drz-agam-1 ribozyme: an 87-nucleotide sequence from Hermetia illucens. For this family Rfam cites "Widespread occurrence of self-cleaving ribozymes" (Webb et al., Science, 2009). Its family is annotated with catalytic activity in the Gene Ontology. The family's consensus secondary structure is taken from published work.
RNA sequence: CUCCUACUAAACCCUAUCUCCACCUCCACGUGGUGAACGCUGGGGGCUCUCUGUUAAAGAAAAGCUGCAGAGUGAAAAGGAAGAAGG
Number, nucleotide and partner (000 for none) at each position: 001c000002u000003c000004c000005u000006a000007c000008u000009a000010a000011a000012c000013c087014c086015u085016a000017u083018c000019u081020c080021c079022a034023c033024c032025u000026c000027c000028a000029c000030g000031u000032g024033g023034u022035g000036a000037a000038c000039g000040c000041u000042g000043g000044g000045g000046g000047c074048u000049c072050u071051c070052u069053g068054u067055u000056a000057a000058a000059g000060a000061a000062a000063a000064g000065c000066u000067g054068c053069a052070g051071a050072g049073u000074g047075a000076a000077a000078a000079g021080g020081a019082a000083g017084a000085a015086g014087g013